About this RNA
The family of this 117-nucleotide RNA sequence from Clostridium butyricum is "FMN riboswitch aptamer (RFN element)". The match comes from Rfam's covariance-model search (118 bits). Pairs were carried over by alignment from the consensus structure, which is taken from published work. From the family's description: The RFN element is a highly conserved domain that is found frequently in the 5'-untranslated regions of prokaryotic mRNAs that encode for flavin mononucleotide (FMN) biosynthesis and transport proteins. This element is a metabolite-dependent riboswitch that directly binds FMN in the absence of proteins. In Bacillus subtilis, the riboswitch most likely controls gene expression by causing premature transcription termination within the 5' untranslated region of the ribDEAHT operon and precluding access to the ribosome-binding site of ypaA mRNA.The FMN riboswitch structure, reported in present an FMN-bound six-stem junction, adopts a butterfly-like scaffold, stapled together by opposingly directed but nearly identically folded peripheral domains.
[Rfam]
RNA sequence: AUUAAUCUUCAGGGCAGGGUGUAAUUCCCUACUGGCGGUAUAGCCCGCGAGCUUAUUAUUAGCAGAUUCGGUUAAAUUCCGAGGCCAACAGUAUAGUCUGGAUAAAAGAAGAGUAUU
Numbered sequence: 001a002u003u004a005a006u007c008u009u010c011a012g013g014g015c016a017g018g019g020u021g022u023a024a025u026u027c028c029c030u031a032c033u034g035g036c037g038g039u040a041u042a043g044c045c046c047g048c049g050a051g052c053u054u055a056u057u058a059u060u061a062g063c064a065g066a067u068u069c070g071g072u073u074a075a076a077u078u079c080c081g082a083g084g085c086c087a088a089c090a091g092u093a094u095a096g097u098c099u100g101g102a103u104a105a106a107a108g109a110a111g112a113g114u115a116u117u
Stems, first nucleotide, its partner, number of pairs: 003115002006112005017029003031097002033087002035048004043085002051063003067083005089100003